[Rfam]
RNA sequence: CGAGCCGGCCGGGCGGCCGCGUGGGACCUUCAGGGGUCUCCCGAGGAACGUCCGGGCUCCAUACGGCAGGGUGGUGGGUAACGCCCACCCGGGGUGACCCGCGGGACAGUGCCACAGAAAACAGACCGCCGGGGAUCUUCGGAUUCCCGGUAAGGGUGAAACGGUGGUGUAAGAGACCACCAGCGCCUGGGGUGACCCAGGCGGCUAGGUAAACCCCACCCGGAGCAAGGUCAAGAGGGGCGGUCGCUUCACGGCGACGGCCCUGCGCGGACGAUCGAGGGCUGCCCGCCCGAGUCCGCGGGUAGACCGCACGAGCCUGUCGGCAACGGCAGGCCUAGAUGGAUGGCCGCCGCCGCGGCUCCCGUAAGGGACCGCGCGCACAGAACCCGGCGUACAGGCCGACUCGUCCG
Numbered sequence: 001c002g003a004g005c006c007g008g009c010c011g012g013g014c015g016g017c018c019g020c021g022u023g024g025g026a027c028c029u030u031c032a033g034g035g036g037u038c039u040c041c042c043g044a045g046g047a048a049c050g051u052c053c054g055g056g057c058u059c060c061a062u063a064c065g066g067c068a069g070g071g072u073g074g075u076g077g078g079u080a081a082c083g084c085c086c087a088c089c090c091g092g093g094g095u096g097a098c099c100c101g102c103g104g105g106a107c108a109g110u111g112c113c114a115c116a117g118a119a120a121a122c123a124g125a126c127c128g129c130c131g132g133g134g135a136u137c138u139u140c141g142g143a144u145u146c147c148c149g150g151u152a153a154g155g156g157u158g159a160a161a162c163g164g165u166g167g168u169g170u171a172a173g174a175g176a177c178c179a180c181c182a183g184c185g186c187c188u189g190g191g192g193u194g195a196c197c198c199a200g201g202c203g204g205c206u207a208g209g210u211a212a213a214c215c216c217c218a219c220c221c222g223g224a225g226c227a228a229g230g231u232c233a234a235g236a237g238g239g240g241c242g243g244u245c246g247c248u249u250c251a252c253g254g255c256g257a258c259g260g261c262c263c264u265g266c267g268c269g270g271a272c273g274a275u276c277g278a279g280g281g282c283u284g285c286c287c288g289c290c291c292g293a294g295u296c297c298g299c300g301g302g303u304a305g306a307c308c309g310c311a312c313g314a315g316c317c318u319g320u321c322g323g324c325a326a327c328g329g330c331a332g333g334c335c336u337a338g339a340u341g342g343a344u345g346g347c348c349g350c351c352g353c354c355g356c357g358g359c360u361c362c363c364g365u366a367a368g369g370g371a372c373c374g375c376g377c378g379c380a381c382a383g384a385a386c387c388c389g390g391c392g393u394a395c396a397g398g399c400c401g402a403c404u405c406g407u408c409c410g
Stems, first nucleotide, its partner, number of pairs: 001406004006401005011395001012351007020043002023040006048393003052390005057225004065286003069221005074088005089103001090101004104216002109214002111210003126155002128151009163181006183205001184203008229308004240299004245294001279291004315334008

Bacterial RNase P class A: a 410-nucleotide RNA sequence from Streptomyces luteoverticillatus. Rfam's curators write: Ribonuclease P (RNase P) is a ubiquitous endoribonuclease, found in archaea, bacteria and eukarya as well as chloroplasts and mitochondria. Lineage of the source: Bacteria > Bacillati > Actinomycetota > Actinomycetes > Streptomyces. By type it is a ribozyme. The base pairs follow the family's consensus structure, which is taken from published work.